About this RNA:
Rfam assigns this 120-nucleotide RNA from Vibrio sp. MED222 to the family "Ribosomal S15 leader". For this family Rfam cites "Pseudoknot and translational control in the expression of the S15 ribosomal protein" (Benard et al., Biochimie, 1996). The family's consensus secondary structure is taken from published work.
Nucleotides: 120
Base pairs, nucleotide, nucleotide: 007026008025009024010023011022012021049074051073052072054071055070056069057068
Number, partner (000 for none) and nucleotide at each position: 001000c002000g003000u004000a005000g006000c007026g008025g009024c010023u011022g012021a013000a014000u015000c016000a017000g018000a019000g020000a021012u022011u023010g024009g025008c026007u027000g028000c029000u030000a031000c032000a033000a034000a035000u036000a037000u038000a039000a040000a041000c042000u043000u044000a045000c046000u047000c048000u049074u050000a051073u052072c053000a054071g055070g056069a057068g058000a059000g060000a061000u062000u063000u064000a065000u066000g067000u068057c069056u070055c071054u072052g073051a074049a075000u076000g077000c078000a079000g080000a081000a082000a083000c084000u085000a086000a087000a088000g089000c090000a091000g092000c093000a094000a095000u096000c097000g098000u099000u100000g101000c102000a103000g104000a105000a106000u107000a108000c109000g110000c111000a112000c113000a114000a115000u116000c117000u118000g119000a120000a